[Rfam]
RNA sequence: GCAGUGUUCCGGGGUCGGUGUGAUUCCGAACCGGCGGUCAGAGCCCGCGAGCCGAGCAGAUGCUCGGUUGAUCCGGUGGAAUUCCGGGGCCGACGGUGAUGGGGGCAUUCGCGCCCUAGUCCGGAUGGGAGGAACGCGAG
Numbered sequence: 001g002c003a004g005u006g007u008u009c010c011g012g013g014g015u016c017g018g019u020g021u022g023a024u025u026c027c028g029a030a031c032c033g034g035c036g037g038u039c040a041g042a043g044c045c046c047g048c049g050a051g052c053c054g055a056g057c058a059g060a061u062g063c064u065c066g067g068u069u070g071a072u073c074c075g076g077u078g079g080a081a082u083u084c085c086g087g088g089g090c091c092g093a094c095g096g097u098g099a100u101g102g103g104g105g106c107a108u109u110c111g112c113g114c115c116c117u118a119g120u121c122c123g124g125a126u127g128g129g130a131g132g133a134a135c136g137c138g139a140g
Base pairs, nucleotide, nucleotide: 004137005136006135007134008133009132010131016028017027018026032092033091034048035047036046037045043090044089051068052067053066072088073087074086075085076084094123095122096121
Dot-bracket structure: ...(((((((.....(((.......)))...((((((.....[[))))..(((............)))...(((((.......)))))]])).(((........................))).......)))))))...
Source information: The record is a 140-nucleotide RNA from Leucobacter ruminantium, which matches "FMN riboswitch aptamer (RFN element)" in Rfam. Rfam describes the family as follows. The RFN element is a highly conserved domain that is found frequently in the 5'-untranslated regions of prokaryotic mRNAs that encode for flavin mononucleotide (FMN) biosynthesis and transport proteins. This element is a metabolite-dependent riboswitch that directly binds FMN in the absence of proteins. In Bacillus subtilis, the riboswitch most likely controls gene expression by causing premature transcription termination within the 5' untranslated region of the ribDEAHT operon and precluding access to the ribosome-binding site of ypaA mRNA.The FMN riboswitch structure, reported in present an FMN-bound six-stem junction, adopts a butterfly-like scaffold, stapled together by opposingly directed but nearly identically folded peripheral domains. The organism belongs to Leucobacter, within Bacteria.